[Rfam]
RNA sequence: UUUCUAUUAAGAGUGUGCGAGAGGGCAAGCUUUAUGACCACACAGCAACCUGCCGUAAGGUAAGGUGCUAAGCCUUGUAUGGAUAGGAG
Numbered sequence: 001u002u003u004c005u006a007u008u009a010a011g012a013g014u015g016u017g018c019g020a021g022a023g024g025g026c027a028a029g030c031u032u033u034a035u036g037a038c039c040a041c042a043c044a045g046c047a048a049c050c051u052g053c054c055g056u057a058a059g060g061u062a063a064g065g066u067g068c069u070a071a072g073c074c075u076u077g078u079a080u081g082g083a084u085a086g087g088a089g
Stems, first nucleotide, its partner, number of pairs: 001089008013043005021032003026077004044069004049065002051062004073081001

The record is an 89-nucleotide sequence from Lachnospiraceae bacterium XBB1006, which matches "SAM riboswitch aptamer (S box leader)" in Rfam.